[Rfam]
RNA sequence: GGGUCAGUGAUGACUAGCCCACUGCGCAAGCUGAUCAGUGCCUAUUUGAUUUAGUGCAUUGCUGAAGAAAUCAGUGCUGAUCAUUGCCUGAGACCC
Numbered sequence: 001g002g003g004u005c006a007g008u009g010a011u012g013a014c015u016a017g018c019c020c021a022c023u024g025c026g027c028a029a030g031c032u033g034a035u036c037a038g039u040g041c042c043u044a045u046u047u048g049a050u051u052u053a054g055u056g057c058a059u060u061g062c063u064g065a066a067g068a069a070a071u072c073a074g075u076g077c078u079g080a081u082c083a084u085u086g087c088c089u090g091a092g093a094c095c096c
Base pairs, nucleotide, nucleotide: 002095003094004093005092036061037060038059039058040057041056

This 96-nucleotide RNA from Mastacembelus armatus belongs to the Rfam family "small Cajal body-specific RNA 18". Rfam classes the family as a small Cajal body RNA. A search with the family's covariance model found it, with a score of 40 bits. The source organism's lineage runs through Eukaryota, Chordata, Vertebrata, Anabantaria and Mastacembelus. From the family's description: scaRNAs are a specific class of small nuclear RNAs which localise to the Cajal bodies and guide the modification of RNA polymerase II transcribed spliceosomal RNAs U1, U2, U4, U5 and U12. This C/D box domain U91 (also known as U4-8) was identified by Darzacq and is predicted to guide the 2'O-ribose methylation of U4 snRNA C8.